[Rfam]
RNA sequence: AUGCUUGGGUAAUCGCUGGAUGAUCAAUUCAUCUAGAGGAAAGUCCAUGCUCGCACAGGCUGAGAUGCUUGUAGUGUUCGUGCUUGACGAAACCAUAAGUCAAGGUAGUGUAACAGCUAACGGCAGAAAAAUGACCUACGUCUUUUGAAGAUAAGGUCAGAGUAUCUUGAAAGUGCCACAGUGACGAAGUUCGCUUGGAAACAAGCGAAGUGGAACGAGGUAAACCCCGCGAGCGAGCAACCCAAAAAUAGGUAGGGGCACUCUUCUGAGGGAACUCAACCAAAAUGAAGAGACAAGCUAUAGGCUUGUAGAUAGAUGAUUACCACCUUAUGUACGAGGUUGACCACCGAUAGGAGUACGAGGGUACAGAACAUGGCUUACAAAG
Numbered sequence: 001a002u003g004c005u006u007g008g009g010u011a012a013u014c015g016c017u018g019g020a021u022g023a024u025c026a027a028u029u030c031a032u033c034u035a036g037a038g039g040a041a042a043g044u045c046c047a048u049g050c051u052c053g054c055a056c057a058g059g060c061u062g063a064g065a066u067g068c069u070u071g072u073a074g075u076g077u078u079c080g081u082g083c084u085u086g087a088c089g090a091a092a093c094c095a096u097a098a099g100u101c102a103a104g105g106u107a108g109u110g111u112a113a114c115a116g117c118u119a120a121c122g123g124c125a126g127a128a129a130a131a132u133g134a135c136c137u138a139c140g141u142c143u144u145u146u147g148a149a150g151a152u153a154a155g156g157u158c159a160g161a162g163u164a165u166c167u168u169g170a171a172a173g174u175g176c177c178a179c180a181g182u183g184a185c186g187a188a189g190u191u192c193g194c195u196u197g198g199a200a201a202c203a204a205g206c207g208a209a210g211u212g213g214a215a216c217g218a219g220g221u222a223a224a225c226c227c228c229g230c231g232a233g234c235g236a237g238c239a240a241c242c243c244a245a246a247a248a249u250a251g252g253u254a255g256g257g258g259c260a261c262u263c264u265u266c267u268g269a270g271g272g273a274a275c276u277c278a279a280c281c282a283a284a285a286u287g288a289a290g291a292g293a294c295a296a297g298c299u300a301u302a303g304g305c306u307u308g309u310a311g312a313u314a315g316a317u318g319a320u321u322a323c324c325a326c327c328u329u330a331u332g333u334a335c336g337a338g339g340u341u342g343a344c345c346a347c348c349g350a351u352a353g354g355a356g357u358a359c360g361a362g363g364g365u366a367c368a369g370a371a372c373a374u375g376g377c378u379u380a381c382a383a384a385g
Base pairs, nucleotide, nucleotide: 004385005384006383007381008324009323010322011321012320013319014318016036017035018034019033020032021031041379042378043377045376046375047374048373049372050237051236052235053234054233055072056071057070058069059068060067078232079231080230081229082228083104084103085102086101087100088099105121106119107118108117109116122227123226125167126166127165133158134157135156136155140152141151142150173225174224175221176220177219190209191208192207193206194205195204196203197202241257242256243255261292262291263290264289265288266287293309294308295307296306297305298304327364328363329362331360332359333358334357335356
The family of this 385-nucleotide RNA from Pontibacillus marinus is "Bacterial RNase P class B". The match comes from Rfam's covariance-model search (321 bits). Its family is annotated with tRNA processing, dimeric ribonuclease P complex and ribonuclease P activity in the Gene Ontology. A reference for the family is Frank and Pace (1998), "Ribonuclease P: unity and diversity in a tRNA processing ribozyme", Annu Rev Biochem. Its Rfam clan is "RNaseP clan".